Shown here is a 169-nucleotide sequence from Vibrio azureus, a member of the family "Molybdenum/Tungsten riboswitch aptamer (Moco RNA motif)". The base pairs follow the family's consensus structure, which is taken from published work. The source organism's lineage runs through Bacteria, Gammaproteobacteria, Vibrionaceae, Vibrio and Vibrio azureus.
[Rfam]
RNA sequence: ACUGCCAUAACUCCGAGCUCACUGUGCUAAGUCAAAAAUAUUGAUGUAGAUCAAAAAGAUCCGAAAAUUAUUUAGAUAAGCACUUUGAGCCAGUGACGUGUUGUCACAAGGGUAAAAUUGGAAAUGAUUUUGCCUCCCAUACUUGGAAAGGUGUUCCGUGGCACAACAA
Number, nucleotide and partner (000 for none) at each position: 001a000002c000003u163004g162005c000006c160007a000008u000009a155010a154011c153012u000013c151014c150015g000016a000017g090018c089019u088020c087021a086022c000023u000024g083025u082026g081027c080028u000029a000030a000031g077032u076033c075034a000035a000036a000037a000038a000039u000040a000041u000042u000043g000044a000045u000046g000047u000048a000049g000050a000051u000052c000053a000054a000055a000056a000057a000058g000059a000060u000061c000062c000063g000064a000065a000066a000067a000068u000069u000070a000071u000072u000073u000074a000075g033076a032077u031078a000079a000080g027081c026082a025083c024084u000085u000086u021087g020088a019089g018090c017091c000092a000093g107094u106095g105096a104097c103098g000099u000100g000101u000102u000103g097104u096105c095106a094107c093108a000109a000110g135111g134112g133113u132114a131115a130116a129117a128118u127119u126120g125121g000122a000123a000124a000125u120126g119127a118128u117129u116130u115131u114132g113133c112134c111135u110136c146137c145138c000139a000140u000141a000142c000143u000144u000145g137146g136147a000148a000149a000150g014151g013152u000153g011154u010155u009156c000157c000158g000159u000160g006161g000162c004163a003164c000165a000166a000167c000168a000169a000